[Rfam]
RNA sequence: AGCUUUGAGUUCGCAGCCUAACUUUAUAGGCUGAUGGCUGGUGACUUUUUAGUCAUCAGCCU
Numbered sequence: 001a002g003c004u005u006u007g008a009g010u011u012c013g014c015a016g017c018c019u020a021a022c023u024u025u026a027u028a029g030g031c032u033g034a035u036g037g038c039u040g041g042u043g044a045c046u047u048u049u050u051a052g053u054c055a056u057c058a059g060c061c062u
Stems, first nucleotide, its partner, number of pairs: 014033005036061010
Rfam assigns this 62-nucleotide RNA sequence from Yersinia pestis to the family "Pseudomonas sRNA P26". This small RNA (sRNA) was computationally identified in the genome of the opportunistic pathogen Pseudomonas aeruginosa and its expression verified by northern blot analysis. P26 is conserved across many Gammaproteobacteria species and appears to be consistently located between the DNA directed RNA polymerase (beta subunit) and 50S ribosomal protein L7/L12 genes.